[Rfam]
RNA sequence: UAGCUAUGAUGAGUUCCACUUCUGGUCCGUGUUUCUGAACCUCUGUGAUAUUUGUGGAAGUUCUGAGCUA
Numbered sequence: 001u002a003g004c005u006a007u008g009a010u011g012a013g014u015u016c017c018a019c020u021u022c023u024g025g026u027c028c029g030u031g032u033u034u035c036u037g038a039a040c041c042u043c044u045g046u047g048a049u050a051u052u053u054g055u056g057g058a059a060g061u062u063c064u065g066a067g068c069u070a
Stems, first nucleotide, its partner, number of pairs: 001070004
A member of the RNA family "Small nucleolar RNA SNORD18" from Aquarana catesbeiana, 70 nucleotides long.
The family's RNA type in Rfam is C/D-box small nucleolar RNA.
NCBI's taxonomy places the organism under Eukaryota, Bilateria, Gnathostomata, Ranoidea, Aquarana.